The record is a 314-nucleotide sequence from Hymenochirus boettgeri, which matches "7SK RNA" in Rfam.
RNA sequence: GGAUGUGAGGGCGAUCUGGCUGCGACAGUCUGUCACCCCAUUGAUCGCUAGGGUUGAUCGGUGAUCUGGUUGGCUGCGGGUGUCCCUUCCUCCCUCACGCUCCAUGUACGUCCCUCCCGAAGCUGCGCGCUCGGUAGAAGAGGAUGGCUCUCCCCGGUAGACACAACCGAUCUUUGGUCCCAGGGUAACGAGGAGCUGCUCCCCGCUAGAACCUCCAAACAAGAAUCCAAGUCCCUAGGAGAAAACGUAGGGUAGUCAAGCUCCAAGUCACGGCACAUCCAAAUACGGCGCUGCAGUGGCAGUUGCCCUUCUUU
Numbered sequence: 001g002g003a004u005g006u007g008a009g010g011g012c013g014a015u016c017u018g019g020c021u022g023c024g025a026c027a028g029u030c031u032g033u034c035a036c037c038c039c040a041u042u043g044a045u046c047g048c049u050a051g052g053g054u055u056g057a058u059c060g061g062u063g064a065u066c067u068g069g070u071u072g073g074c075u076g077c078g079g080g081u082g083u084c085c086c087u088u089c090c091u092c093c094c095u096c097a098c099g100c101u102c103c104a105u106g107u108a109c110g111u112c113c114c115u116c117c118c119g120a121a122g123c124u125g126c127g128c129g130c131u132c133g134g135u136a137g138a139a140g141a142g143g144a145u146g147g148c149u150c151u152c153c154c155c156g157g158u159a160g161a162c163a164c165a166a167c168c169g170a171u172c173u174u175u176g177g178u179c180c181c182a183g184g185g186u187a188a189c190g191a192g193g194a195g196c197u198g199c200u201c202c203c204c205g206c207u208a209g210a211a212c213c214u215c216c217a218a219a220c221a222a223g224a225a226u227c228c229a230a231g232u233c234c235c236u237a238g239g240a241g242a243a244a245a246c247g248u249a250g251g252g253u254a255g256u257c258a259a260g261c262u263c264c265a266a267g268u269c270a271c272g273g274c275a276c277a278u279c280c281a282a283a284u285a286c287g288g289c290g291c292u293g294c295a296g297u298g299g300c301a302g303u304u305g306c307c308c309u310u311c312u313u314u
Base pairs, nucleotide, nucleotide: 001103002102003101005098006097007096008095009094010093011092013089014088018086019085024084025083026082027081029080030079031078032077036073037072038069039068040067043066044065045064046063047062048061049060111165115161116160117134118133119132120131122130123129135157137155142153143152144151195261196260197259199255200254201252202251203250205248206247213241214240215239216238281314282313283312285309287307288306289305290303291302292301293300294299
From the family's description: 7SK was discovered as an abundant small nuclear RNA in the mid-70s but a possible function has only recently been suggested. Pairs were carried over by alignment from the consensus structure, which is taken from published work.